[Rfam]
RNA sequence: UUGGAGCUGUAAACAUCCCCGACUGGAAGCUGUCACUCCGUAAAGCUUUCAGUCUGAUGUUUGCUGCCGCCGA
Numbered sequence: 001u002u003g004g005a006g007c008u009g010u011a012a013a014c015a016u017c018c019c020c021g022a023c024u025g026g027a028a029g030c031u032g033u034c035a036c037u038c039c040g041u042a043a044a045g046c047u048u049u050c051a052g053u054c055u056g057a058u059g060u061u062u063g064c065u066g067c068c069g070c071c072g073a
Base pairs, nucleotide, nucleotide: 002072003071004070006068007066009064010063011062012061013060014059015058016057017056022053023052024051025050026049027048028047029046030045031044
mir-30 microRNA precursor family: a 73-nucleotide sequence from Muraenolepis orangiensis. Lineage of the source: Eukaryota > Euteleosteomorpha > Ctenosquamata > Muraenolepididae > Muraenolepis. Rfam describes the family as follows. This family consists of the mammalian microRNA (miRNA) precursor mir-30a. Animal miRNAs are transcribed as ~70nt precursors and subsequently processed by the Dicer enzyme to give a ~22nt product. In this case the mature sequence comes from both the 3' (miR-30) and 5' (mir-97-6) arms of the precursor. The extents of the hairpin precursors are not generally known and are estimated based on hairpin prediction. For this family Rfam cites "microRNAs: tiny regulators with great potential" (Ambros, Cell, 2001).